Mason-Pfizer monkey virus packaging signal: a 272-nucleotide RNA sequence from Nannospalax galili. NCBI's taxonomy places the organism under Eukaryota, Teleostomi, Mammalia, Boreoeutheria, Nannospalax. For this family Rfam cites "Mutational analysis of the predicted secondary RNA structure of the Mason-Pfizer monkey virus packaging signal" (Mustafa et al., Virus Res, 2004).

RNA sequence: UGGUGCCCAACAUGGGGCUUGGAUACUGGGGGACAAUGUGAGGGUCGACGACGGAAGAAAAAGGGGUGCAUACCCACUCAAAUAAUUCAGAGACGCCACAGGAGCCUGCCAUGACCGAGCCGAAGGUAAGUUGGUCGUUCAAAUAUGGGGCAAGAACUAAGUCAGCAUCAGAUUUAUGUGAUAGUUAAGAGAAGCUGUACAGGCCAGAGGAGUAAAGGUUAAAACUGAGGAUUUAUUUCAUUUCUUUGAUUUUGUAAAGGACAUUUGUCCCU
Numbered sequence: 001u002g003g004u005g006c007c008c009a010a011c012a013u014g015g016g017g018c019u020u021g022g023a024u025a026c027u028g029g030g031g032g033a034c035a036a037u038g039u040g041a042g043g044g045u046c047g048a049c050g051a052c053g054g055a056a057g058a059a060a061a062a063g064g065g066g067u068g069c070a071u072a073c074c075c076a077c078u079c080a081a082a083u084a085a086u087u088c089a090g091a092g093a094c095g096c097c098a099c100a101g102g103a104g105c106c107u108g109c110c111a112u113g114a115c116c117g118a119g120c121c122g123a124a125g126g127u128a129a130g131u132u133g134g135u136c137g138u139u140c141a142a143a144u145a146u147g148g149g150g151c152a153a154g155a156a157c158u159a160a161g162u163c164a165g166c167a168u169c170a171g172a173u174u175u176a177u178g179u180g181a182u183a184g185u186u187a188a189g190a191g192a193a194g195c196u197g198u199a200c201a202g203g204c205c206a207g208a209g210g211a212g213u214a215a216a217g218g219u220u221a222a223a224a225c226u227g228a229g230g231a232u233u234u235a236u237u238u239c240a241u242u243u244c245u246u247u248g249a250u251u252u253u254g255u256a257a258a259g260g261a262c263a264u265u266u267g268u269c270c271c272u
Stems, first nucleotide, its partner, number of pairs: 006031003013025002037050003084127001086125001087123002094117002097113002101109001136150001138149004158199002161195002207247006216234005257272001259270004
Dot-bracket structure: .....(((....((.........))...))).....(((........))).................................(.(((.....((.((..(.......)..))..))....)).).)........(.((((....))))).......((.((...............................))..)).......((((((...(((((.........))))).......)))))).........(.((((....)))).)